The record is a 66-nucleotide RNA sequence from Mesocricetus auratus, which matches "Small nucleolar RNA SNORD109A" in Rfam. The family is grouped with related families in Rfam's "SNORD74 clan". The family's RNA type in Rfam is C/D-box small nucleolar RNA. The family's consensus secondary structure was predicted with WAR. It scores 48 bits against the family's covariance model. From the family's description: Humans have two copies of the SNORD109 gene, SNORD109A and SNORD109B.
RNA sequence: GGAUCGAUGAUGACAAGAAGUCUUUGAGGACGCUGAUCGAUAUGUAACUAUGCCAAUCUGAGCUCC
Number, nucleotide and partner (000 for none) at each position: 001g066002g065003a064004u000005c062006g000007a000008u000009g000010a000011u000012g000013a000014c000015a000016a000017g000018a000019a000020g000021u000022c000023u000024u000025u000026g000027a000028g000029g000030a000031c000032g000033c000034u000035g000036a000037u000038c000039g000040a000041u000042a000043u000044g000045u000046a000047a000048c000049u000050a000051u000052g000053c000054c000055a000056a000057u000058c000059u000060g000061a000062g005063c000064u003065c002066c001